Shown here is a 55-nucleotide RNA sequence from Mus musculus, a member of the family "mir-3473 microRNA precursor family". NCBI's taxonomy places the organism under Eukaryota, Mammalia, Euarchontoglires, Muridae, Mus. Its family is annotated with miRNA-mediated post-transcriptional gene silencing, cellular response to mechanical stimulus and RISC complex in the Gene Ontology.
RNA sequence: CUGAGCCAUCUCUCCAGCCCAAGAUUAGGUUUUAAGGGCUGGAGAGAUGGCUCAG
Numbered sequence: 001c002u003g004a005g006c007c008a009u010c011u012c013u014c015c016a017g018c019c020c021a022a023g024a025u026u027a028g029g030u031u032u033u034a035a036g037g038g039c040u041g042g043a044g045a046g047a048u049g050g051c052u053c054a055g
Stems, first nucleotide, its partner, number of pairs: 001055020